The record is a 76-nucleotide sequence from Jaculus jaculus, which matches "mir-3473 microRNA precursor family" in Rfam.
RNA sequence: ACCACUAAGCCAUCUCUCCAGCCCUAUUGUUUAUUUUUUAAAAAGGGCUGGAGGGCUGGAGAGAUGGCUUAGUGGU
Dot-bracket structure: .(((((((((((((((((((((((............................))))))))))))))))))))))).
A search with the family's covariance model found it, with a score of 75 bits.